[Rfam]
RNA sequence: UGGGAGGCUGAUGCACAGAUUGGGUUGAAAGACUGCUCUAAUUGUCACCAUUCCUCCCUAGAGUAAAAGUACCUUUUGAUGACAGGAACAAAUUGAGAGAAAUCAUAACAGACAGAUACAGGACAGACAAUU
Number, nucleotide and partner (000 for none) at each position: 001u000002g058003g057004g056005a055006g054007g053008c000009u000010g000011a000012u000013g000014c000015a045016c044017a043018g042019a000020u000021u000022g038023g037024g036025u035026u000027g000028a000029a000030a000031g000032a000033c000034u000035g025036c024037u023038c022039u000040a000041a000042u018043u017044g016045u015046c000047a000048c000049c000050a000051u000052u000053c007054c006055u005056c004057c003058c002059u000060a000061g000062a000063g000064u000065a000066a000067a000068a000069g000070u125071a000072c000073c122074u121075u120076u000077u000078g000079a000080u000081g000082a000083c111084a000085g109086g000087a000088a106089c000090a000091a103092a000093u000094u000095g000096a000097g000098a000099g000100a000101a000102a000103u091104c000105a000106u088107a000108a000109c085110a000111g083112a000113c000114a000115g000116a000117u000118a000119c000120a075121g074122g073123a000124c000125a070126g000127a000128c000129a000130a000131u000132u000
Shown here is a 132-nucleotide sequence from Jaculus jaculus, a member of the family "Small Cajal body specific RNA 8". Pairs were carried over by alignment from the consensus structure, which is taken from published work. The match comes from Rfam's covariance-model search (106 bits). By type it is a small Cajal body RNA. scaRNAs are a specific class of small nuclear RNAs which localise to the Cajal bodies and guide the modification of RNA polymerase II transcribed spliceosomal RNAs U1, U2, U4, U5 and U12. A reference for the family is Huttenhofer et al. (2001), "RNomics: an experimental approach that identifies 201 candidates for novel, small, non-messenger RNAs in mouse", EMBO J.